[Rfam]
RNA: Group II catalytic intron D1-D4-6
Organism: Thermoanaerobacterium sp. RBIITD
RNA sequence: UGAAUCUAGCUUGAUAAAGUUUAACCAGCAGCCGUACUUAGUAUUGGGCGAUAUAUGGCGACGAAUAUUAAGUGUAGGUAGAGAAGAUAAUAGGCUGAAAAUCGAAAGAUUGAAGGUGUUGAGCUACGAAAUUUCAAUUGGGAAGGCCCAUGCUCUGGGAUGAGCUAAAGACAGAAUUCUAUUAGUUAUUAUGGCAAGAAUAAUAGAACUUCCUCGGGGCCGUAGGCCU
Numbered sequence: 001u002g003a004a005u006c007u008a009g010c011u012u013g014a015u016a017a018a019g020u021u022u023a024a025c026c027a028g029c030a031g032c033c034g035u036a037c038u039u040a041g042u043a044u045u046g047g048g049c050g051a052u053a054u055a056u057g058g059c060g061a062c063g064a065a066u067a068u069u070a071a072g073u074g075u076a077g078g079u080a081g082a083g084a085a086g087a088u089a090a091u092a093g094g095c096u097g098a099a100a101a102u103c104g105a106a107a108g109a110u111u112g113a114a115g116g117u118g119u120u121g122a123g124c125u126a127c128g129a130a131a132u133u134u135c136a137a138u139u140g141g142g143a144a145g146g147c148c149c150a151u152g153c154u155c156u157g158g159g160a161u162g163a164g165c166u167a168a169a170g171a172c173a174g175a176a177u178u179c180u181a182u183u184a185g186u187u188a189u190u191a192u193g194g195c196a197a198g199a200a201u202a203a204u205a206g207a208a209c210u211u212c213c214u215c216g217g218g219g220c221c222g223u224a225g226g227c228c229u
Base pairs, nucleotide, nucleotide: 012034013033019029020028021027022197025194038081041079042078044076045074046073047069051068052067053066054065056063057062121221123220124219125218127216128215140214141213142212143211144210145209146172148170152165153164154163177208178207179206180205181204182203183202184201186199187198
Dot-bracket structure: ...........((.....((([..[.)))...))...(..((.((((...((((.((....)).)))))...)).).)).).......................................(.(((.((...........(((((((.(...(((........)))....).)....((((((((.((......]..])).)))))))))))))))).))))........